RNA: 7SK RNA
RNA sequence: UGAUGUGAGGGCGAUUUGGCUGCAACGUGUGUCACCCCAUUGAUCACCAGGGUUGAUUCGGCUGAUCUGGCUGGCUAGGCGGGUGUCCCCUUCCUCCCUCACCACUCCAUGUGCGUCCCUCCCGAAGCUGCGCGCUUGGUCAAAGAGGACAACCUUCCCCGAUAGAGGUGUACCGUUCAUCGGUCAAGGGUAUACGGCAGCUGCGCUCCCCUGCUAGGACCUCCAAACAAGCUCAAAGUCCAUUUGUAGGAGAACGUAGGGUAGUCAAGCUUCCAAGACUGCAGACACAUCCAAGUGAGGCACUGCAU
Numbered sequence: 001u002g003a004u005g006u007g008a009g010g011g012c013g014a015u016u017u018g019g020c021u022g023c024a025a026c027g028u029g030u031g032u033c034a035c036c037c038c039a040u041u042g043a044u045c046a047c048c049a050g051g052g053u054u055g056a057u058u059c060g061g062c063u064g065a066u067c068u069g070g071c072u073g074g075c076u077a078g079g080c081g082g083g084u085g086u087c088c089c090c091u092u093c094c095u096c097c098c099u100c101a102c103c104a105c106u107c108c109a110u111g112u113g114c115g116u117c118c119c120u121c122c123c124g125a126a127g128c129u130g131c132g133c134g135c136u137u138g139g140u141c142a143a144a145g146a147g148g149a150c151a152a153c154c155u156u157c158c159c160c161g162a163u164a165g166a167g168g169u170g171u172a173c174c175g176u177u178c179a180u181c182g183g184u185c186a187a188g189g190g191u192a193u194a195c196g197g198c199a200g201c202u203g204c205g206c207u208c209c210c211c212u213g214c215u216a217g218g219a220c221c222u223c224c225a226a227a228c229a230a231g232c233u234c235a236a237a238g239u240c241c242a243u244u245u246g247u248a249g250g251a252g253a254a255c256g257u258a259g260g261g262u263a264g265u266c267a268a269g270c271u272u273c274c275a276a277g278a279c280u281g282c283a284g285a286c287a288c289a290u291c292c293a294a295g296u297g298a299g300g301c302a303c304u305g306c307a308u
Stems, first nucleotide, its partner, number of pairs: 002107002005102007013093002018090002025086004030081004035074002037070003042067004047061002117170001118168004122139004127135002140162002147158003200270003206264002209261006221252004227247005